[Rfam]
RNA sequence: CUUAACCGUCGAGUUUCGCGCUGCCGCGAAACAUCGCUGAUUGUAUGCCGUUUCUCAUUUUAUUCCGAAAUGGCGUAAUGCAACCGUUUUCAGAAAGUGAUGUUUCUUCAACUGUUAUAUUUUAA
Numbered sequence: 001c002u003u004a005a006c007c008g009u010c011g012a013g014u015u016u017c018g019c020g021c022u023g024c025c026g027c028g029a030a031a032c033a034u035c036g037c038u039g040a041u042u043g044u045a046u047g048c049c050g051u052u053u054c055u056c057a058u059u060u061u062a063u064u065c066c067g068a069a070a071u072g073g074c075g076u077a078a079u080g081c082a083a084c085c086g087u088u089u090u091c092a093g094a095a096a097g098u099g100a101u102g103u104u105u106c107u108u109c110a111a112c113u114g115u116u117a118u119a120u121u122u123u124a125a
Base pairs, nucleotide, nucleotide: 011035012034013032014031015030016029017028018027019026020025047074048073049072050071051070052069053068054067079119080118082116083115084114086112087111088110092107093106094105095104096103